[Rfam]
RNA sequence: GGGCACCUACGGGGGCCUACAACCACAUAGGCGGGGCCAAAGAGGCCUGCGUCGUUUGCUAAACGGAAGACAGACA
Number, nucleotide and partner (000 for none) at each position: 001g018002g017003g016004c015005a000006c014007c013008u012009a000010c000011g000012g008013g007014g006015g004016c003017c002018u001019a000020c000021a000022a000023c000024c000025a000026c000027a000028u000029a000030g053031g052032c051033g050034g048035g047036g046037c045038c044039a000040a000041a000042g000043a000044g038045g037046c036047c035048u034049g000050c033051g032052u031053c030054g000055u000056u000057u000058g000059c000060u000061a000062a000063a000064c000065g000066g000067a000068a000069g000070a000071c000072a000073g000074a000075c000076a000
Shown here is a 76-nucleotide sequence, a member of the family "L2-Alphaproteobacteria ribosomal protein leader".
The literature on the family includes a 2020 paper in BMC Microbiol by Eckert and Weinberg, "Discovery of 20 novel ribosomal leader candidates in bacteria and archaea".
It is annotated as a cis-regulatory leader.